[Rfam]
RNA sequence: AUGGCUUAAACUCAAUGAGUAAGGAAACUAGCACCCUACCUGACACGUAGGGCAAUCAAGGGCUAGUUGCCCUUGAUUCAAUCUUUGACGGAGGUGGAAUGGCCUUCUUGAGCUGUCGCCCUACUUUGGCUGAUGGCUCUGGGGCUGGUCCCCGCC
Numbered sequence: 001a002u003g004g005c006u007u008a009a010a011c012u013c014a015a016u017g018a019g020u021a022a023g024g025a026a027a028c029u030a031g032c033a034c035c036c037u038a039c040c041u042g043a044c045a046c047g048u049a050g051g052g053c054a055a056u057c058a059a060g061g062g063c064u065a066g067u068u069g070c071c072c073u074u075g076a077u078u079c080a081a082u083c084u085u086u087g088a089c090g091g092a093g094g095u096g097g098a099a100u101g102g103c104c105u106u107c108u109u110g111a112g113c114u115g116u117c118g119c120c121c122u123a124c125u126u127u128g129g130c131u132g133a134u135g136g137c138u139c140u141g142g143g144g145c146u147g148g149u150c151c152c153c154g155c156c
Stems, first nucleotide, its partner, number of pairs: 005023004034052006056076005093156005101150004107142002110139005116133002118130003
The record is a 156-nucleotide RNA sequence from Pythium oligandrum, which matches "U12 minor spliceosomal RNA" in Rfam. The source organism's lineage runs through Eukaryota, Peronosporomycetes, Pythiales, Pythiaceae and Pythium. Gene Ontology terms of the family: pre-mRNA branch point binding, U12 snRNP and mRNA branch site recognition. Its Rfam clan is "U2 clan". The family's RNA type in Rfam is spliceosomal small nuclear RNA.